[Rfam]
RNA sequence: GCAGGGAAGAGGAAGAACGAGAGGAUCCAAGAGCACUGGGAAUGGGAACAUGGAGGAAAGCAUGAGUUCCGUGCCUUGUCCUCUAUCAUCAAAGGAGACAUGGUAUUGUGUUUUCCCAGUGCCUCCCAUUCCUAUUGUUCUUGGAAACUCCUUCCCCUUCCCUUUGGCU
Numbered sequence: 001g002c003a004g005g006g007a008a009g010a011g012g013a014a015g016a017a018c019g020a021g022a023g024g025a026u027c028c029a030a031g032a033g034c035a036c037u038g039g040g041a042a043u044g045g046g047a048a049c050a051u052g053g054a055g056g057a058a059a060g061c062a063u064g065a066g067u068u069c070c071g072u073g074c075c076u077u078g079u080c081c082u083c084u085a086u087c088a089u090c091a092a093a094g095g096a097g098a099c100a101u102g103g104u105a106u107u108g109u110g111u112u113u114u115c116c117c118a119g120u121g122c123c124u125c126c127c128a129u130u131c132c133u134a135u136u137g138u139u140c141u142u143g144g145a146a147a148c149u150c151c152u153u154c155c156c157c158u159u160c161c162c163u164u165u166g167g168c169u
Stems, first nucleotide, its partner, number of pairs: 009160004015154003021150003026145010037134011049121003053117001055116007

The family of this 169-nucleotide sequence from Dichanthelium oligosanthes is "MIR2118 microRNA precursor family". A reference for the family is Johnson et al. (2009), "Clusters and superclusters of phased small RNAs in the developing inflorescence of rice", Genome Res. The organism belongs to Dichanthelium, within Eukaryota. Pairs were carried over by alignment from the consensus structure, which was predicted with RNAalifold. Its family is annotated with RISC complex and miRNA-mediated post-transcriptional gene silencing in the Gene Ontology.